[Rfam]
RNA sequence: CUGGAGACUUAGAAAAGAGAGUCCUUGAAGUCAAGUUGACUCUUACUGUUAGCCUCCUAGAUGAAAAGGUGGAUAGAACAGGUCUUGUUUGCAAAAUAAAUUCAAGACCUACUUAUCUACCUACAGCC
Numbered sequence: 001c002u003g004g005a006g007a008c009u010u011a012g013a014a015a016a017g018a019g020a021g022u023c024c025u026u027g028a029a030g031u032c033a034a035g036u037u038g039a040c041u042c043u044u045a046c047u048g049u050u051a052g053c054c055u056c057c058u059a060g061a062u063g064a065a066a067a068g069g070u071g072g073a074u075a076g077a078a079c080a081g082g083u084c085u086u087g088u089u090u091g092c093a094a095a096a097u098a099a100a101u102u103c104a105a106g107a108c109c110u111a112c113u114u115a116u117c118u119a120c121c122u123a124c125a126g127c128c
Base pairs, nucleotide, nucleotide: 003057004056005055006054008052009051011049017044018043019042020041021040022039023038024035025034026033027032068121069120070119071118072117073116074115075114080110081109082108083107084106085105086104087103
RNA: Small Cajal body specific RNA 15
Organism: Jaculus jaculus